[Rfam]
RNA: U5 spliceosomal RNA
Organism: Lactuca sativa
RNA sequence: AGCCAUGUGGUAAGCACAAAGCGAACUAUUCUUUCGCCUUUUACUAAAGAAUACCGUGUGCUUGCCAUACACAGUGGCAUACGCCUAUUUUUGGAGAGUAACUUCCUUUAUUG
Numbered sequence: 001a002g003c004c005a006u007g008u009g010g011u012a013a014g015c016a017c018a019a020a021g022c023g024a025a026c027u028a029u030u031c032u033u034u035c036g037c038c039u040u041u042u043a044c045u046a047a048a049g050a051a052u053a054c055c056g057u058g059u060g061c062u063u064g065c066c067a068u069a070c071a072c073a074g075u076g077g078c079a080u081a082c083g084c085c086u087a088u089u090u091u092u093g094g095a096g097a098g099u100a101a102c103u104u105c106c107u108u109u110a111u112u113g
Base pairs, nucleotide, nucleotide: 003077004076005075006074008067009066010065011064012063013062014061015060016059017058018057027053028052029051030050031049032048033047034046099113100112101111